The family of this 81-nucleotide sequence from Silvibacterium dinghuense is "antisense RNA of dnaA mRNA". For this family Rfam cites "Identification and characterization of a cis-encoded antisense RNA associated with the replication process of Salmonella enterica serovar Typhi" (Dadzie et al., PLoS One, 2013). Pairs were carried over by alignment from the consensus structure, which was predicted with RNAfold. Lineage of the source: Bacteria > Acidobacteriota > Terriglobales > Acidobacteriaceae > Silvibacterium. A search with the family's covariance model found it, with a score of 52 bits.
RNA sequence: GGAGGCAUUGGGGAUGCGCUGCUUGACCUCGUGGCCCACGGCCUGCAUGAGGUGCGUCUUGCCCAUGCCGGUGCCACCGUA
Numbered sequence: 001g002g003a004g005g006c007a008u009u010g011g012g013g014a015u016g017c018g019c020u021g022c023u024u025g026a027c028c029u030c031g032u033g034g035c036c037c038a039c040g041g042c043c044u045g046c047a048u049g050a051g052g053u054g055c056g057u058c059u060u061g062c063c064c065a066u067g068c069c070g071g072u073g074c075c076a077c078c079g080u081a
Stems, first nucleotide, its partner, number of pairs: 004043003009038004016032003021028001051078004056074002061072003